[Rfam]
RNA sequence: AUAGAAUAAACAGCGCCUGAACUGGGUGGAGACGAAAAUCCCCAGUUGACGAGGAGGAGGUUUAUCGAUGUUUCGGCGGAUGCCUCCCGGUUACCGAGUUAUAACCGUAAGUUUGCUCUAAAAUAAGUAGGCAACUAUUUACACAAGGCAGCAAACAAUAACCAAC
Number, nucleotide and partner (000 for none) at each position: 001a000002u000003a000004g000005a000006a000007u000008a000009a000010a000011c000012a000013g000014c000015g000016c000017c000018u000019g000020a047021a046022c045023u044024g043025g042026g041027u000028g000029g000030a000031g000032a000033c000034g000035a000036a000037a000038a000039u000040c000041c026042c025043c024044a023045g022046u021047u020048g000049a000050c000051g000052a000053g000054g000055a000056g087057g086058a085059g084060g083061u000062u000063u000064a000065u076066c075067g074068a073069u000070g000071u000072u000073u068074c067075g066076g065077c000078g000079g000080a000081u000082g000083c060084c059085u058086c057087c056088c107089g106090g105091u104092u103093a102094c000095c000096g000097a000098g000099u000100u000101a000102u093103a092104a091105c090106c089107g088108u000109a000110a000111g156112u155113u154114u153115g152116c151117u150118c000119u000120a000121a000122a000123a000124u141125a140126a139127g138128u137129a136130g135131g000132c000133a000134a000135c130136u129137a128138u127139u126140u125141a124142c000143a000144c000145a000146a000147g000148g000149c000150a117151g116152c115153a114154a113155a112156c111157a000158a000159u000160a000161a000162c000163c000164a000165a000166c000
The record is a 166-nucleotide RNA sequence from Metabacillus lacus, which matches "glmS glucosamine-6-phosphate activated ribozyme aptamer" in Rfam.